The family of this 76-nucleotide sequence from Bos taurus is "mir-216 microRNA precursor family". Clan: mir-216 clan. Lineage of the source: Eukaryota > Gnathostomata > Laurasiatheria > Ruminantia > Bos. The literature on the family includes a 2008 paper in Gene by Shao et al., "Identification of novel chicken microRNAs and analysis of their genomic organization". Rfam's curators put it in the seed alignment.
RNA sequence: AGUUGGCUUAAUCUCAGCUGGCAACUGUGAGAUGUUCAUACAGUCCUCCACAGUGGUCUCUGGGAUUAUGCUAAAC
Numbered sequence: 001a002g003u004u005g006g007c008u009u010a011a012u013c014u015c016a017g018c019u020g021g022c023a024a025c026u027g028u029g030a031g032a033u034g035u036u037c038a039u040a041c042a043g044u045c046c047u048c049c050a051c052a053g054u055g056g057u058c059u060c061u062g063g064g065a066u067u068a069u070g071c072u073a074a075a076c
Stems, first nucleotide, its partner, number of pairs: 003074005009068009020058003023054001026052004031047001